[Rfam]
Rfam assigns this 97-nucleotide RNA sequence from Muntiacus reevesi to the family "Small nucleolar RNA SNORD116". The base pairs follow the family's consensus structure, which was predicted with PFOLD. For this family Rfam cites "Identification of brain-specific and imprinted small nucleolar RNA genes exhibiting an unusual genomic organization" (Cavaille et al., Proc Natl Acad Sci U S A, 2000). By type it is a C/D-box small nucleolar RNA. NCBI's taxonomy places the organism under Eukaryota, Vertebrata, Theria, Laurasiatheria, Muntiacus.
RNA sequence: AAUUCAAUAAAGACUUUAAAAAUGACAUGCAUUCCUUGGAAAAUCUGAACAAUAUGAGUGAGAACUCACUACCGUCUCCUCAUCGAAACUGAGGUCC
Numbered sequence: 001a002a003u004u005c006a007a008u009a010a011a012g013a014c015u016u017u018a019a020a021a022a023u024g025a026c027a028u029g030c031a032u033u034c035c036u037u038g039g040a041a042a043a044u045c046u047g048a049a050c051a052a053u054a055u056g057a058g059u060g061a062g063a064a065c066u067c068a069c070u071a072c073c074g075u076c077u078c079c080u081c082a083u084c085g086a087a088a089c090u091g092a093g094g095u096c097c
Stems, first nucleotide, its partner, number of pairs: 002095002005093001030060005036052003